[Rfam]
RNA sequence: CCAUGAAGAUGGACACCCACCUGCACGCGUGCUCCGCCCGGAUGGCUUCGGGAAUGACCUCUCGUGCCCGCCGACCGGAACCGCUCCUCUAGCUGGGUCCCCGGAAGCUUGUGUGUGUUCA
Dot-bracket structure: ..............................((.(((.((((.((((....((.(((......))).)).)))).))((...(.(.(.....)..).)...)))).......)).).))...
Rfam assigns this 121-nucleotide RNA sequence from a Lysobacteraceae bacterium to the family "Xanthomonadaceae sRNA Xoo5". Pairs were carried over by alignment from the consensus structure, which was predicted with RNAalifold. The family's RNA type in Rfam is small RNA. For this family Rfam cites "Identification and functional characterization of small non-coding RNAs in Xanthomonas oryzae pathovar oryzae" (Liang et al., BMC Genomics, 2011).